[Rfam]
RNA: c-di-AMP riboswitch aptamer (ydaO/yuaA leader)
Organism: Corynebacterium sp. TAE3-ERU30
RNA sequence: GUCUCUGAUCAACUCCGAUCCUGAGGAUGCCGCCGGAGCCGGGGAACCACCUAAAUAUCUGGGGUGAAAUUCUCGCAAGAGUGCUCAGUAUAGAGAGCACGGCGCGAGGAUGGGAGGCCUUCCGGAUGCCUAGCCCGUCAGCUAACCCGGCCGGUUCAAACAAGGAAGACGU
Numbered sequence: 001g002u003c004u005c006u007g008a009u010c011a012a013c014u015c016c017g018a019u020c021c022u023g024a025g026g027a028u029g030c031c032g033c034c035g036g037a038g039c040c041g042g043g044g045a046a047c048c049a050c051c052u053a054a055a056u057a058u059c060u061g062g063g064g065u066g067a068a069a070u071u072c073u074c075g076c077a078a079g080a081g082u083g084c085u086c087a088g089u090a091u092a093g094a095g096a097g098c099a100c101g102g103c104g105c106g107a108g109g110a111u112g113g114g115a116g117g118c119c120u121u122c123c124g125g126a127u128g129c130c131u132a133g134c135c136c137g138u139c140a141g142c143u144a145a146c147c148c149g150g151c152c153g154g155u156u157c158a159a160a161c162a163a164g165g166a167a168g169a170c171g172u
Stems, first nucleotide, its partner, number of pairs: 002037003038151006048061002062136003070110007113130002116127001